[Rfam]
RNA sequence: UGUGGCUUGUCCAUGUGCCGGCGGCUCCAGCGCCAGCGCCACACACAUGUGCUGUGAGCGCCUGAGCCAUGGUGGCUGCA
Numbered sequence: 001u002g003u004g005g006c007u008u009g010u011c012c013a014u015g016u017g018c019c020g021g022c023g024g025c026u027c028c029a030g031c032g033c034c035a036g037c038g039c040c041a042c043a044c045a046c047a048u049g050u051g052c053u054g055u056g057a058g059c060g061c062c063u064g065a066g067c068c069a070u071g072g073u074g075g076c077u078g079c080a
Stems, first nucleotide, its partner, number of pairs: 002079006011072005017067002019064003024059004030052004
Overview: mir-8932 microRNA precursor family: an 80-nucleotide RNA from Equus asinus. A search with the family's covariance model found it, with a score of 63 bits. Lineage of the source: Eukaryota > Eumetazoa > Gnathostomata > Dipnotetrapodomorpha > Equus. Pairs were carried over by alignment from the consensus structure, which was predicted with RNAalifold. Rfam links the family to the GO terms miRNA-mediated post-transcriptional gene silencing and RISC complex.